[Rfam]
Rfam assigns this 75-nucleotide RNA from Alligator sinensis to the family "Mammalian CPEB3 ribozyme".
RNA sequence: AUUGCAAGUUUGAGGCCAUAGCAGAAGCACUCACAGUGUGGUCUGUCAGAUUCCAAUUAAUCUGCAAAUUCUGCU
Numbered sequence: 001a002u003u004g005c006a007a008g009u010u011u012g013a014g015g016c017c018a019u020a021g022c023a024g025a026a027g028c029a030c031u032c033a034c035a036g037u038g039u040g041g042u043c044u045g046u047c048a049g050a051u052u053c054c055a056a057u058u059a060a061u062c063u064g065c066a067a068a069u070u071c072u073g074c075u
Base pairs, nucleotide, nucleotide: 014043015042016041017040020075021074022073023072024071025070026069027039028038029037047064048063049062050061051060052059
Lineage of the source: Eukaryota > Opisthokonta > Gnathostomata > Archosauria > Alligator. The literature on the family includes a 2006 paper in Science by Salehi-Ashtiani et al., "A genomewide search for ribozymes reveals an HDV-like sequence in the human CPEB3 gene".